[Rfam]
RNA sequence: AAUGCCACCUCGGGGUGGCCGGAACGGCCUGAGAUGCAGUGAUGCGAACCCGUAGAACCUGAACCGGUUAGGACCGGCGGAGGGAAGGUUGGAUCUCUGGCA
Dot-bracket structure: ......((((((((.((((((...)))))......(((....))))..)))).....(((...((((......))))...)))..)))).............
Background:
TPP riboswitch aptamer (THI element): a 102-nucleotide RNA from Donghicola tyrosinivorans. Vitamin B(1) in its active form thiamin pyrophosphate (TPP) is an essential coenzyme that is synthesised by coupling of pyrimidine and thiazole moieties in bacteria. The previously detected thiamin-regulatory element, thi box was extended, resulting in a new, highly conserved RNA secondary structure, the THI element, which is widely distributed in eubacteria and also occurs in some archaea. Analysis of operon structures identified a large number of new candidate thiamin-regulated genes, mostly transporters, in various prokaryotic organisms. The THI element is a riboswitch that directly binds to TPP to regulate gene expression through a variety of mechanisms in archaea, bacteria and eukaryotes. through a variety of mechanisms in archaea, bacteria and eukaryotes. Tandem TPP riboswitches have been reported where both TPP riboswitches respond independently to TPP. The structure of TPP riboswitch has been reported for Escherichia coli and Arabidopsis thaliana. The family's consensus secondary structure is taken from published work. NCBI's taxonomy places the organism under Bacteria, Pseudomonadota, Alphaproteobacteria, Roseobacteraceae, Donghicola.